[Rfam]
RNA: Plant signal recognition particle RNA
RNA sequence: GCCGAGCUGGGUAACGCCAGCUUGUAACCUGAGUAGGGGCAUUAAGGUGAUUGGACAAUGGGCCUGCCCAACUAGCUGGGCCUUAGGUAGUGAAAGGCUGGCCCGCCCGUUCCAAGUAGGGAGUUGGGCCGCGUGGUCCAUGCGAAGGCUUGGGCUUCGUGGUCCGUAGAGUGGAGGGCAUUGCGUCAGGCUGGCCUCACAGAGCAGCGAUAACUUCCCUCUCUCUACAGUGGGAGGAUAACGGGCCGGUGCUGCCUUGGCCCAAUAAAAGCUAGAUGGGCCAGUCCUAAGUGGACAAUCACUUUU
Numbered sequence: 001g002c003c004g005a006g007c008u009g010g011g012u013a014a015c016g017c018c019a020g021c022u023u024g025u026a027a028c029c030u031g032a033g034u035a036g037g038g039g040c041a042u043u044a045a046g047g048u049g050a051u052u053g054g055a056c057a058a059u060g061g062g063c064c065u066g067c068c069c070a071a072c073u074a075g076c077u078g079g080g081c082c083u084u085a086g087g088u089a090g091u092g093a094a095a096g097g098c099u100g101g102c103c104c105g106c107c108c109g110u111u112c113c114a115a116g117u118a119g120g121g122a123g124u125u126g127g128g129c130c131g132c133g134u135g136g137u138c139c140a141u142g143c144g145a146a147g148g149c150u151u152g153g154g155c156u157u158c159g160u161g162g163u164c165c166g167u168a169g170a171g172u173g174g175a176g177g178g179c180a181u182u183g184c185g186u187c188a189g190g191c192u193g194g195c196c197u198c199a200c201a202g203a204g205c206a207g208c209g210a211u212a213a214c215u216u217c218c219c220u221c222u223c224u225c226u227a228c229a230g231u232g233g234g235a236g237g238a239u240a241a242c243g244g245g246c247c248g249g250u251g252c253u254g255c256c257u258u259g260g261c262c263c264a265a266u267a268a269a270a271g272c273u274a275g276a277u278g279g280g281c282c283a284g285u286c287c288u289a290a291g292u293g294g295a296c297a298a299u300c301a302c303u304u305u306u
Stems, first nucleotide, its partner, number of pairs: 001040003004023007028037003044305010056293002059289002061286003066281001068279003072275006078263005086255001088254003093250001098249008107237002110235005116228008126165008135156006142149002173218005184209003191202003
Dot-bracket structure: ((((((((((......)))))))....(((....))))))...((((((((((..((.(((((..(.(((.(((((((((((...(.(((..(....((((((((.((.(((((.((((((((..((((((((.((((((.((....)).)))))).)))))))).......(((((......(((....(((......)))....)))....)))))..))))))))..)))))))....))))))))).))))...)))))......)))))).))).)..))).))..))..)))))))))).